The record is a 133-nucleotide RNA sequence from Dipodomys ordii, which matches "Small nucleolar RNA SNORA71" in Rfam. The members of this family belong to the H/ACA class of snoRNAs which bind a number of proteins (including dyskerin, Gar1p and Nop10p) to form snoRNP complexes. This class of snoRNAs are thought to guide the sites of modification of uridines to pseudouridines by forming direct base pairing interactions with substrate RNAs. On this family, see Ganot et al., Genes Dev 1997: "The family of box ACA small nucleolar RNAs is defined by an evolutionarily conserved secondary structure and ubiquitous sequence elements essential for RNA accumulation". The organism belongs to Dipodomys, within Eukaryota. It scores 140 bits against the family's covariance model.
RNA sequence: CCCUGCAUUCGAAAGUGAUUGUGGGCUGCUGGUGCCCUGGUCAUUGAUAGUGCAGGGAAAGGAAUGCUGAAAGCUUUUCCCCGUGUUUGGAAGGUCCAUUCCUGUCCUUACCAAACCCUACAGCUUUCUCACA
Numbered sequence: 001c002c003c004u005g006c007a008u009u010c011g012a013a014a015g016u017g018a019u020u021g022u023g024g025g026c027u028g029c030u031g032g033u034g035c036c037c038u039g040g041u042c043a044u045u046g047a048u049a050g051u052g053c054a055g056g057g058a059a060a061g062g063a064a065u066g067c068u069g070a071a072a073g074c075u076u077u078u079c080c081c082c083g084u085g086u087u088u089g090g091a092a093g094g095u096c097c098a099u100u101c102c103u104g105u106c107c108u109u110a111c112c113a114a115a116c117c118c119u120a121c122a123g124c125u126u127u128c129u130c131a132c133a
Base pairs, nucleotide, nucleotide: 001057002056003055004054005053006052007051008050009049014045015044016043017042018041019040020039021038023037024036025035026034066130069128070127071126072125073124074123085116086115087114088113089112091109092108093107094106
The family's consensus secondary structure was predicted with PFOLD.